[Rfam]
RNA sequence: CAACCAUCCAGAGCGGCCGAGAGAUCUGGCUCUAUGACGCCGCAGCAACCCCUCCCCUUAAUUGGGCGGUAGGUGCUCACGCCAGAACCGAUGGAGA
Dot-bracket structure: ...(((((....(((((...(((..[[[[)))......)))))((((.((((.(((.......))).))..))))))...(]]]]...))))))...
Numbered sequence: 001c002a003a004c005c006a007u008c009c010a011g012a013g014c015g016g017c018c019g020a021g022a023g024a025u026c027u028g029g030c031u032c033u034a035u036g037a038c039g040c041c042g043c044a045g046c047a048a049c050c051c052c053u054c055c056c057c058u059u060a061a062u063u064g065g066g067c068g069g070u071a072g073g074u075g076c077u078c079a080c081g082c083c084a085g086a087a088c089c090g091a092u093g094g095a096g097a
Stems, first nucleotide, its partner, number of pairs: 004094005013043005021032003026085004044077004049073002051069002054066003081089001

Description
SAM riboswitch aptamer (S box leader): a 97-nucleotide sequence from Arthrobacter sp. MYb227. For this family Rfam cites "The S box regulon: a new global transcription termination control system for methionine and cysteine biosynthesis genes in gram-positive bacteria" (Grundy and Henkin, Mol Microbiol, 1998). Gene Ontology term of the family: regulation of gene expression. The match comes from Rfam's covariance-model search (56 bits).